Shown here is a 296-nucleotide RNA sequence from Absidia glauca, a member of the family "Metazoan signal recognition particle RNA".
Rfam 15.1 lists 383,523 matches to the family in 1,221 species.
From the family's description: The signal recognition particle (SRP) is a universally conserved ribonucleoprotein.
Its family is annotated with SRP-dependent cotranslational protein targeting to membrane, signal sequence recognition and signal recognition particle, endoplasmic reticulum targeting in the Gene Ontology.
[Rfam]
RNA sequence: ACUGGAAAGCGUAGCGACUUUCUGUAAGCCGAGUGGUAGUCUUGUGAGGGAUGAAUUCAUUCAUUGGUGGAAUCACGGUUAUUUGGUUGCCUUGUAGAAGGUAGUGUCUUACAGAGUAUGGUGUCAACAUUCGGGUCUUAGCGUAGGCUAUGGGUUCGGAGGUUGUUCAAUAUCGAGGUAAUGCCCGAGGGUAGCAAUACAGCAGGGAAAACUCGAAGCACUGAUACGGCUGUGAGAUGGCACACUGGAGAGGAUUUAUCAAAUAACUGCCAUCGUGGGUGGGGACUACCCCUUUU
Numbered sequence: 001a002c003u004g005g006a007a008a009g010c011g012u013a014g015c016g017a018c019u020u021u022c023u024g025u026a027a028g029c030c031g032a033g034u035g036g037u038a039g040u041c042u043u044g045u046g047a048g049g050g051a052u053g054a055a056u057u058c059a060u061u062c063a064u065u066g067g068u069g070g071a072a073u074c075a076c077g078g079u080u081a082u083u084u085g086g087u088u089g090c091c092u093u094g095u096a097g098a099a100g101g102u103a104g105u106g107u108c109u110u111a112c113a114g115a116g117u118a119u120g121g122u123g124u125c126a127a128c129a130u131u132c133g134g135g136u137c138u139u140a141g142c143g144u145a146g147g148c149u150a151u152g153g154g155u156u157c158g159g160a161g162g163u164u165g166u167u168c169a170a171u172a173u174c175g176a177g178g179u180a181a182u183g184c185c186c187g188a189g190g191g192u193a194g195c196a197a198u199a200c201a202g203c204a205g206g207g208a209a210a211a212c213u214c215g216a217a218g219c220a221c222u223g224a225u226a227c228g229g230c231u232g233u234g235a236g237a238u239g240g241c242a243c244a245c246u247g248g249a250g251a252g253g254a255u256u257u258a259u260c261a262a263a264u265a266a267c268u269g270c271c272a273u274c275g276u277g278g279g280u281g282g283g284g285a286c287u288a289c290c291c292c293u294u295u296u
Stems, first nucleotide, its partner, number of pairs: 001040003004023006028037003044296001046294005052288001054287001056285003060281001062278001065275006076269012090253004095248001100246003104243004108236007116227004120222005125165004130160009139150004166172001173216005182209001184207003191200003